[Rfam]
RNA sequence: GGGCGGGCAGCUGUUAAGACUUGCAGUGAUGUUUAAUUCUUCUCUAUGUGAACAUCACAACAAGUCUAUACAGUUUCCC
Numbered sequence: 001g002g003g004c005g006g007g008c009a010g011c012u013g014u015u016a017a018g019a020c021u022u023g024c025a026g027u028g029a030u031g032u033u034u035a036a037u038u039c040u041u042c043u044c045u046a047u048g049u050g051a052a053c054a055u056c057a058c059a060a061c062a063a064g065u066c067u068a069u070a071c072a073g074u075u076u077c078c079c
Stems, first nucleotide, its partner, number of pairs: 017067007026058010
RNA: mir-499 microRNA precursor family
Organism: Monodelphis domestica